[Rfam]
RNA sequence: AAUAUAAUCAUGAGGCCGCAAUUUGUCAAGAGUACUUUUUUUAAAAUAGGAAAGGGGCAAUUGCCGAAAUACGAUUUAUUCGUAUUGGGACUAUGCUAAAUAAGUAUAGUACUGUCAUUAAUAAUCUGCCCAGAUUAUUAAUGGAGAACUGAUUAUGUU
Numbered sequence: 001a002a003u004a005u006a007a008u009c010a011u012g013a014g015g016c017c018g019c020a021a022u023u024u025g026u027c028a029a030g031a032g033u034a035c036u037u038u039u040u041u042u043a044a045a046a047u048a049g050g051a052a053a054g055g056g057g058c059a060a061u062u063g064c065c066g067a068a069a070u071a072c073g074a075u076u077u078a079u080u081c082g083u084a085u086u087g088g089g090a091c092u093a094u095g096c097u098a099a100a101u102a103a104g105u106a107u108a109g110u111a112c113u114g115u116c117a118u119u120a121a122u123a124a125u126c127u128g129c130c131c132a133g134a135u136u137a138u139u140a141a142u143g144g145a146g147a148a149c150u151g152a153u154u155a156u157g158u159u
Stems, first nucleotide, its partner, number of pairs: 006154005012149001018064006025058003035049002038046003068086007087113002090110008115144011